[Rfam]
RNA sequence: CUGCAUCCACUAGGAAUUGGACCAACGAAUUCGCCAAUUAUGAGUUGGGUGGUGCUUUAACCAUUCAGCCGUCGAUGC
Numbered sequence: 001c002u003g004c005a006u007c008c009a010c011u012a013g014g015a016a017u018u019g020g021a022c023c024a025a026c027g028a029a030u031u032c033g034c035c036a037a038u039u040a041u042g043a044g045u046u047g048g049g050u051g052g053u054g055c056u057u058u059a060a061c062c063a064u065u066c067a068g069c070c071g072u073c074g075a076u077g078c
Stems, first nucleotide, its partner, number of pairs: 003078005011025001013023002040072003044069008